The family of this 58-nucleotide sequence from filamentous cyanobacterium CCP2 is "Nitrogen stress-induced RNA 1". On this family, see Ionescu et al., J Mol Biol 2010: "Heterocyst-specific transcription of NsiR1, a non-coding RNA encoded in a tandem array of direct repeats in cyanobacteria". The organism belongs to Cyanobacteriota, within Bacteria.
[Rfam]
RNA sequence: UGGUAGAUGCACCCUGAUUCAAUGUCCCUGGCUCCUCGUUGAGUUGGGGGCUUCUUUA
Numbered sequence: 001u002g003g004u005a006g007a008u009g010c011a012c013c014c015u016g017a018u019u020c021a022a023u024g025u026c027c028c029u030g031g032c033u034c035c036u037c038g039u040u041g042a043g044u045u046g047g048g049g050g051c052u053u054c055u056u057u058a
Stems, first nucleotide, its partner, number of pairs: 002013003025050010